[Rfam]
Nucleotides: 069
Base pairs, nucleotide, nucleotide: 010065012063018059019058020057022056023055024054025053026050027049029047031045032044033043034042035041
Number, partner (000 for none) and nucleotide at each position: 001000u002000g003000u004000c005000a006000a007000g008000a009000g010065u011000c012063c013000c014000c015000g016000a017000c018059g019058u020057c021000g022056u023055u024054u025053u026050g027049a028000c029047g030000a031045g032044c033043a034042g035041a036000u037000u038000u039000c040000u041035u042034u043033u044032g045031c046000c047029u048000u049027u050026c051000g052000a053025a054024a055023a056022g057020g058019g059018c060000a061000a062000u063012g064000a065010g066000g067000a068000u069000g
About this RNA:
S-element: a 69-nucleotide sequence from Phyllobacterium sp. YR620. By type it is a cis-regulatory element. Lineage of the source: Bacteria > Pseudomonadati > Hyphomicrobiales > Phyllobacteriaceae > Phyllobacterium.